[Rfam]
RNA sequence: CAAGCAGGUUGCAAUUACAGUGCUUCAUUCUGUGGGAGUGCUGCCAUUAGUCCUGCUGAAAGCAUUGAUGCUGGCUAUUGUGCGAUUUCUCCUUCCGCAUAGGACAAAUCUCCUGUUGGCACCAACAAUG
Dot-bracket structure: ..((((((.........(((((((((........)))))))))........))))))........((.(((((((........(((((.((((.......)))).)))))....))))))).))......
Numbered sequence: 001c002a003a004g005c006a007g008g009u010u011g012c013a014a015u016u017a018c019a020g021u022g023c024u025u026c027a028u029u030c031u032g033u034g035g036g037a038g039u040g041c042u043g044c045c046a047u048u049a050g051u052c053c054u055g056c057u058g059a060a061a062g063c064a065u066u067g068a069u070g071c072u073g074g075c076u077a078u079u080g081u082g083c084g085a086u087u088u089c090u091c092c093u094u095c096c097g098c099a100u101a102g103g104a105c106a107a108a109u110c111u112c113c114u115g116u117u118g119g120c121a122c123c124a125a126c127a128a129u130g
Stems, first nucleotide, its partner, number of pairs: 003057006018043009066124002069121007084110005090104004
Rfam assigns this 130-nucleotide RNA from Leptobrachium leishanense to the family "Small nucleolar RNA SNORA69". Its family is annotated with nucleolus and RNA processing in the Gene Ontology. NCBI's taxonomy places the organism under Eukaryota, Metazoa, Anura, Pelobatoidea, Leptobrachium. A search with the family's covariance model found it, with a score of 77 bits.